[Rfam]
RNA sequence: CCGGAGUUAGUUUUGGGCGGGUUUUAGUGUAUUUCGAUUAGAGUAUCAAUUGAAACCGUCCAAAACUGAGGCCGGC
Numbered sequence: 001c002c003g004g005a006g007u008u009a010g011u012u013u014u015g016g017g018c019g020g021g022u023u024u025u026a027g028u029g030u031a032u033u034u035c036g037a038u039u040a041g042a043g044u045a046u047c048a049a050u051u052g053a054a055a056c057c058g059u060c061c062a063a064a065a066c067u068g069a070g071g072c073c074g075g076c
Stems, first nucleotide, its partner, number of pairs: 007069008016060004021056008
Rfam assigns this 76-nucleotide RNA from Aedes aegypti to the family "mir-957 microRNA precursor family". The family's consensus secondary structure was predicted with RNAalifold. Lineage of the source: Eukaryota > Metazoa > Dicondylia > Diptera > Stegomyia. A search with the family's covariance model found it, with a score of 84 bits.